[Rfam]
RNA sequence: AAGCGGUAAAGUAAGAUGUUGUGCCAGAAAGCAGUGUCUUAUGAGCUUUAUAAGGGUUUAACACAAUCUGGCUAGAGGUUAGUCUUCGAAAGAAAAUGUAAGAA
Dot-bracket structure: ((((......((((((((((((.[[[[...))))))))))))..))))............(((....]]]]...((((.....)))).........))).....

A member of the RNA family "drum RNA", 104 nucleotides long. The family's RNA type in Rfam is small RNA. From the family's description: Firmicutes, Bacteroidetes (1 example), Proteobacteria (2 examples), Spirochaetes (2 examples). The family's consensus secondary structure is taken from published work.